This 110-nucleotide sequence from Sphingopyxis bauzanensis belongs to the Rfam family "Glycine riboswitch aptamer". The organism belongs to Sphingopyxis, within Bacteria.

[Rfam]
RNA sequence: AACGGACACUCUGGAAAGCGUUCCGGCUGUCUGCUGGAGCCACCGAAGGGGUAACCGCGGACUUUGUUGCCGGGGGAAAACUCUCAGGUUCCCGUGACAGAGGGGGCAUG
Numbered sequence: 001a002a003c004g005g006a007c008a009c010u011c012u013g014g015a016a017a018g019c020g021u022u023c024c025g026g027c028u029g030u031c032u033g034c035u036g037g038a039g040c041c042a043c044c045g046a047a048g049g050g051g052u053a054a055c056c057g058c059g060g061a062c063u064u065u066g067u068u069g070c071c072g073g074g075g076g077a078a079a080a081c082u083c084u085c086a087g088g089u090u091c092c093c094g095u096g097a098c099a100g101a102g103g104g105g106g107c108a109u110g
Stems, first nucleotide, its partner, number of pairs: 007104001009102005020040006042089003045085002049083003055076002